The family of this 79-nucleotide sequence from Erpetoichthys calabaricus is "Mammalian CPEB3 ribozyme". Lineage of the source: Eukaryota > Vertebrata > Teleostomi > Cladistia > Erpetoichthys. A search with the family's covariance model found it, with a score of 41 bits.
RNA sequence: AGACCUUCCUGGGAGGGUCACAGUAGGAGUGUUAUCGUCGCGAUCCCUGUCAGAUUUUAUCUGAAUCUGCAAUCCAACU
Number, nucleotide and partner (000 for none) at each position: 001a000002g000003a000004c000005c000006u000007u000008c000009c000010u000011g000012g000013g047014a000015g046016g045017g044018u043019c042020a000021c000022a079023g078024u077025a000026g075027g074028a073029g041030u040031g039032u000033u000034a000035u000036c000037g000038u000039c031040g030041c029042g019043a018044u017045c016046c015047c013048u000049g000050u000051c069052a068053g067054a066055u065056u064057u063058u000059a000060u000061c000062u000063g057064a056065a055066u054067c053068u052069g051070c000071a000072a000073u028074c027075c026076a000077a024078c023079u022